[Rfam]
Shown here is a 48-nucleotide sequence from Magnetospirillum aberrantis, a member of the family "Guanidine-II riboswitch aptamer (mini-ykkC)".
RNA sequence: GCGCGGGGACGACCCCGCCAUCUUUCGGGCACGACGGGGACGACCCCA
Numbered sequence: 001g002c003g004c005g006g007g008g009a010c011g012a013c014c015c016c017g018c019c020a021u022c023u024u025u026c027g028g029g030c031a032c033g034a035c036g037g038g039g040a041c042g043a044c045c046c047c048a
Base pairs, nucleotide, nucleotide: 003018004017005016006015007014008013036047037046038045039044
The organism belongs to Magnetospirillum aberrantis, within Bacteria. It scores 42 bits against the family's covariance model.